[Rfam]
RNA sequence: AAAGCAGGCCAGGCAACCGCUGCCUGCACCGCAAGGUGCAGGGGGAGGAAAGUCCGGACUCCACAGGGCAGGGUGUUGGCUAACAGCCAUCCACGGCAACGUGCGGAAUAGGGCCACAGAGACGAGUCUUGCCGCCGGGUUCGCCCGGCGGGAAGGGUGAAACGCGGUAACCUCCACCUGGAGCAAUCCCAAAUAGGCAGGCGAUGAAGCGGCCCGCUGAGUCUGCGGGUAGGGAGCUGGAGCCGGCUGGUAACAGCCGGCCUAGAGGAAUGGUUGUCACGCACCGUUUGCCGCAAGGCGGGCGGGGCGCACAGAAUCCGGCUUAUCGGCCUGCUUUGCUU
Number, nucleotide and partner (000 for none) at each position: 001a337002a336003a335004g334005c333006a332007g331008g330009c329010c328011a326012g278013g277014c276015a275016a274017c273018c272019g000020c045021u044022g000023c042024c041025u040026g039027c038028a037029c000030c000031g000032c000033a000034a000035g000036g000037u028038g027039c026040a025041g024042g023043g000044g021045g020046a000047g000048g000049a000050a324051a323052g322053u000054c321055c320056g319057g318058a317059c183060u182061c181062c180063a000064c000065a000066g215067g214068g213069c212070a000071g179072g178073g177074u176075g175076u000077u089078g088079g087080c086081u000082a000083a000084c000085a000086g080087c079088c078089a077090u000091c105092c103093a102094c101095g100096g000097c000098a000099a000100c095101g094102u093103g092104c000105g091106g174107a173108a000109u000110a000111g172112g171113g168114c167115c166116a000117c000118a000119g000120a000121g000122a000123c000124g000125a000126g000127u000128c156129u155130u000131g000132c151133c150134g149135c148136c147137g146138g145139g144140u000141u000142c000143g000144c139145c138146c137147g136148g135149c134150g133151g132152g000153a000154a000155g129156g128157g000158u000159g000160a000161a000162a000163c000164g000165c000166g115167g114168u113169a000170a000171c112172c111173u107174c106175c075176a074177c073178c072179u071180g062181g061182a060183g059184c000185a000186a000187u235188c234189c233190c232191a000192a000193a000194u000195a000196g000197g226198c225199a224200g223201g222202c221203g000204a000205u000206g000207a000208a218209g217210c216211g000212g069213c068214c067215c066216g210217c209218u208219g000220a000221g202222u201223c200224u199225g198226c197227g000228g000229g000230u000231a000232g190233g189234g188235a187236g000237c000238u000239g000240g000241a000242g261243c260244c259245g258246g257247c256248u255249g254250g000251u000252a000253a000254c249255a248256g247257c246258c245259g244260g243261c242262c000263u000264a000265g000266a000267g000268g000269a000270a000271u000272g018273g017274u016275u015276g014277u013278c012279a000280c000281g000282c000283a000284c000285c000286g000287u000288u000289u000290g000291c000292c000293g000294c000295a000296a000297g000298g000299c000300g000301g000302g000303c000304g000305g000306g000307g000308c000309g000310c000311a000312c000313a000314g000315a000316a000317u058318c057319c056320g055321g054322c052323u051324u050325a000326u011327c000328g010329g009330c008331c007332u006333g005334c004335u003336u002337u001338g000339c000340u000341u000
RNA: Bacterial RNase P class A
Organism: Cupriavidus necator